[Rfam]
MIR812 microRNA precursor family: a 206-nucleotide RNA sequence from Oryza nivara. The family's consensus secondary structure was predicted with RNAalifold.
RNA sequence: UUUAAGUGUAGGUAUAGUUAUCCGUCUCCAACCUUGACCGUCCGUCUUAUUUUAAAAAAAAAUUAAAAAAAUUUAAAAACAUAAGUCUCGGGUAAAAUACUAUUCAUGUUUUAUCAUCUCAUAACAACAAAAAUAUUAAUUAUAAAAAAAUUUUAAAUAAGACGGACGAUUAAAAUUGAACGCGAAAACUUAUGGUUGCACUUAGA
Numbered sequence: 001u002u003u004a005a006g007u008g009u010a011g012g013u014a015u016a017g018u019u020a021u022c023c024g025u026c027u028c029c030a031a032c033c034u035u036g037a038c039c040g041u042c043c044g045u046c047u048u049a050u051u052u053u054a055a056a057a058a059a060a061a062a063u064u065a066a067a068a069a070a071a072u073u074u075a076a077a078a079a080c081a082u083a084a085g086u087c088u089c090g091g092g093u094a095a096a097a098u099a100c101u102a103u104u105c106a107u108g109u110u111u112u113a114u115c116a117u118c119u120c121a122u123a124a125c126a127a128c129a130a131a132a133a134u135a136u137u138a139a140u141u142a143u144a145a146a147a148a149a150a151u152u153u154u155a156a157a158u159a160a161g162a163c164g165g166a167c168g169a170u171u172a173a174a175a176u177u178g179a180a181c182g183c184g185a186a187a188a189c190u191u192a193u194g195g196u197u198g199c200a201c202u203u204a205g206a
Stems, first nucleotide, its partner, number of pairs: 027180001029178003034173004039168012
Dot-bracket structure: ..........................(.(((..((((.((((((((((((..........................................................................................................)))))))))))).))))..))).)..........................